Shown here is a 209-nucleotide sequence from Rhizodiscina lignyota, a member of the family "Small nucleolar RNA snR32". The family's RNA type in Rfam is H/ACA-box small nucleolar RNA.

RNA sequence: AACUUCAUCUUCAACACGCCCCUCGAAAUUUCUUCUUCAGUCUAUCGCCAGCAAGAAAUCACAUUACUGUCGGCAGCUUUCGCACUCCUCAGUGGUAAAGCUGUUUUCGCGCUGAGCGUAGAGUAAAUCAUAACCCAUGGCUGGGCGCCUGGCUUUGAAGGAUCAUCCCGAUUCUGAGGAGAAAUUGGGAAUCAGCAGAGGUUACACUC
Numbered sequence: 001a002a003c004u005u006c007a008u009c010u011u012c013a014a015c016a017c018g019c020c021c022c023u024c025g026a027a028a029u030u031u032c033u034u035c036u037u038c039a040g041u042c043u044a045u046c047g048c049c050a051g052c053a054a055g056a057a058a059u060c061a062c063a064u065u066a067c068u069g070u071c072g073g074c075a076g077c078u079u080u081c082g083c084a085c086u087c088c089u090c091a092g093u094g095g096u097a098a099a100g101c102u103g104u105u106u107u108c109g110c111g112c113u114g115a116g117c118g119u120a121g122a123g124u125a126a127a128u129c130a131u132a133a134c135c136c137a138u139g140g141c142u143g144g145g146c147g148c149c150u151g152g153c154u155u156u157g158a159a160g161g162a163u164c165a166u167c168c169c170g171a172u173u174c175u176g177a178g179g180a181g182a183a184a185u186u187g188g189g190a191a192u193c194a195g196c197a198g199a200g201g202u203u204a205c206a207c208u209c
Base pairs, nucleotide, nucleotide: 017118018117019116022111024109025108026107027106028105030103036057037056038055042051043050058096059095060094061093133202134201136198148189149188152185154183155182156181159175160174161173162172163171

Its family is annotated with nucleolus and RNA processing in the Gene Ontology.
The organism belongs to Rhizodiscina, within Eukaryota.
The family's consensus secondary structure was predicted with WAR.